RNA sequence: CGAAAGUGUGCCUAGGGUUCCGCGUGCUUUGGGCACGGACUGGUCCAAGUGGCACAGACGCACGCUGCGUUACACCGGAGGGAUAGAAGCCCAGGCGGG
Numbered sequence: 001c002g003a004a005a006g007u008g009u010g011c012c013u014a015g016g017g018u019u020c021c022g023c024g025u026g027c028u029u030u031g032g033g034c035a036c037g038g039a040c041u042g043g044u045c046c047a048a049g050u051g052g053c054a055c056a057g058a059c060g061c062a063c064g065c066u067g068c069g070u071u072a073c074a075c076c077g078g079a080g081g082g083a084u085a086g087a088a089g090c091c092c093a094g095g096c097g098g099g
Base pairs, nucleotide, nucleotide: 007056008055009054010053011052012051015046016045020043021042022040023037024036025035026034027033028032057071058070059069060068061067062066073094075097080092081091082090
This 99-nucleotide RNA from Syntrophothermus lipocalidus belongs to the Rfam family "Guanidine-I riboswitch aptamer". Lineage of the source: Bacteria > Clostridia > Eubacteriales > Syntrophothermus > Syntrophothermus lipocalidus. Pairs were carried over by alignment from the consensus structure.